[Rfam]
RNA sequence: AUUUAAAAAAAAAUGAAGUGUAGGUUAAAGGACAUGUCUGAUGUUUUACUGUGUUAUCAAACUACCUGCUUUUUUUAAAG
Numbered sequence: 001a002u003u004u005a006a007a008a009a010a011a012a013a014u015g016a017a018g019u020g021u022a023g024g025u026u027a028a029a030g031g032a033c034a035u036g037u038c039u040g041a042u043g044u045u046u047u048a049c050u051g052u053g054u055u056a057u058c059a060a061a062c063u064a065c066c067u068g069c070u071u072u073u074u075u076u077a078a079a080g
Stems, first nucleotide, its partner, number of pairs: 002079005008073004